[Rfam]
RNA sequence: GGGGCCGUCGUCUAGCCUGGACUAGGAUGCGGGGCUUGGGCCCCCGUGGCCCGGGGUUCAAAUCCCCGCGGCCCCA
Numbered sequence: 001g002g003g004g005c006c007g008u009c010g011u012c013u014a015g016c017c018u019g020g021a022c023u024a025g026g027a028u029g030c031g032g033g034g035c036u037u038g039g040g041c042c043c044c045c046g047u048g049g050c051c052c053g054g055g056g057u058u059c060a061a062a063u064c065c066c067c068g069c070g071g072c073c074c075c076a
Base pairs, nucleotide, nucleotide: 001075002074003073004072005071006070007069010028011027012026013025030046031045032044033043034042052068053067054066055065056064
Dot-bracket structure: (((((((..((((...........)))).(((((.......))))).....(((((.......)))))))))))).
The record is a 76-nucleotide RNA sequence from Desulfurococcus sp., which matches "tRNA" in Rfam.
The family's consensus secondary structure is taken from published work.